[Rfam]
A member of the RNA family "Bacterial large subunit ribosomal RNA" from Idiomarina loihiensis, 587 nucleotides of a longer RNA. The family has 102 seed sequences and 51,934 matches in Rfam 15.1. The source organism's lineage runs through Bacteria, Pseudomonadati, Alteromonadales, Idiomarina and Idiomarina loihiensis. It scores 2847 bits against the family's covariance model.
RNA sequence: CCCGCGGCUAGACGGAAAGACCCCGUGAACCUUUACUACAGCUUGGCACUGAACAUUGAACCUACAUGUGUAGGAUAGGUGGGAGGCUUUGAAGCGUUGGCGCUAGUUGACGUGGAGCCAUCCUUGAAAUACCACCCUUGUAUGUUUGAUGUUCUAACAUAGGCCCCUUAUCGGGGUUGUGGACAGUGCCUGGUGGGUAGUUUGACUGGGGCGGUCUCCUCCCAAAGAGUAACGGAGGAGCACGAAGGUUGGCUAAGUACGGUCGGACAUCGUACGGUUAGUGCAAUGGCAGAAGCCAGCUUAACUGCGAGACAGACACGUCGAGCAGAUACGAAAGUAGGUCAUAGUGAUCCGGUGGUUCUGAAUGGAAGGGCCAUCGCUCAACGGAUAAAAGGUACUCCGGGGAUAACAGGCUGAUACCGCCCAAGAGUUCAUAUCGACGGCGGUGUUUGGCACCUCGAUGUCGGCUCAUCACAUCCUGGGGCUGAAGUCGGUCCCAAGGGUAUGGCUGUUCGCCAUUUAAAGUGGUACGCGAGCUGGGUUUAGAACGUCGUGAGACAGUUCGGUCCCUAUCUGCCGUGGGCGUU
Numbered sequence: 001c002c003c004g005c006g007g008c009u010a011g012a013c014g015g016a017a018a019g020a021c022c023c024c025g026u027g028a029a030c031c032u033u034u035a036c037u038a039c040a041g042c043u044u045g046g047c048a049c050u051g052a053a054c055a056u057u058g059a060a061c062c063u064a065c066a067u068g069u070g071u072a073g074g075a076u077a078g079g080u081g082g083g084a085g086g087c088u089u090u091g092a093a094g095c096g097u098u099g100g101c102g103c104u105a106g107u108u109g110a111c112g113u114g115g116a117g118c119c120a121u122c123c124u125u126g127a128a129a130u131a132c133c134a135c136c137c138u139u140g141u142a143u144g145u146u147u148g149a150u151g152u153u154c155u156a157a158c159a160u161a162g163g164c165c166c167c168u169u170a171u172c173g174g175g176g177u178u179g180u181g182g183a184c185a186g187u188g189c190c191u192g193g194u195g196g197g198u199a200g201u202u203u204g205a206c207u208g209g210g211g212c213g214g215u216c217u218c219c220u221c222c223c224a225a226a227g228a229g230u231a232a233c234g235g236a237g238g239a240g241c242a243c244g245a246a247g248g249u250u251g252g253c254u255a256a257g258u259a260c261g262g263u264c265g266g267a268c269a270u271c272g273u274a275c276g277g278u279u280a281g282u283g284c285a286a287u288g289g290c291a292g293a294a295g296c297c298a299g300c301u302u303a304a305c306u307g308c309g310a311g312a313c314a315g316a317c318a319c320g321u322c323g324a325g326c327a328g329a330u331a332c333g334a335a336a337g338u339a340g341g342u343c344a345u346a347g348u349g350a351u352c353c354g355g356u357g358g359u360u361c362u363g364a365a366u367g368g369a370a371g372g373g374c375c376a377u378c379g380c381u382c383a384a385c386g387g388a389u390a391a392a393a394g395g396u397a398c399u400c401c402g403g404g405g406a407u408a409a410c411a412g413g414c415u416g417a418u419a420c421c422g423c424c425c426a427a428g429a430g431u432u433c434a435u436a437u438c439g440a441c442g443g444c445g446g447u448g449u450u451u452g453g454c455a456c457c458u459c460g461a462u463g464u465c466g467g468c469u470c471a472u473c474a475c476a477u478c479c480u481g482g483g484g485c486u487g488a489a490g491u492c493g494g495u496c497c498c499a500a501g502g503g504u505a506u507g508g509c510u511g512u513u514c515g516c517c518a519u520u521u522a523a524a525g526u527g528g529u530a531c532g533c534g535a536g537c538u539g540g541g542u543u544u545a546g547a548a549c550g551u552c553g554u555g556a557g558a559c560a561g562u563u564c565g566g567u568c569c570c571u572a573u574c575u576g577c578c579g580u581g582g583g584c585g586u587u
Base pairs, nucleotide, nucleotide: 001583002582003581004580005579006578007577008576010575011574012573014570015569022404023403024402025401027400028399029396030395031394032393033392035201036200037199038198042193043192045190046189047188048187051154052153053152054151055150056149057148058147059146060145061144063142064141065140066139068137078136079135080134081133082132085119086118087117094113095112096111097110098109099108100107101106158181159180160179162178163177164176165175166174167173204216205215206214207213217239218238219237220236221235222234240385242342243341248300249299250298251297252296253295254280255279257275258274259273260272261271262270281290282289305328306327307326308325311322312321313320330339331338332337353379354378355377356376357375358374359373361372362371413454414453415452417451418448419447420446421445422444423443424442428438429437465540466538467537468536469535470532471529472528473527474526475525478503479502481498482497483496484495485494486493505519506518507517508516509515546564547563548562549561550559551558552557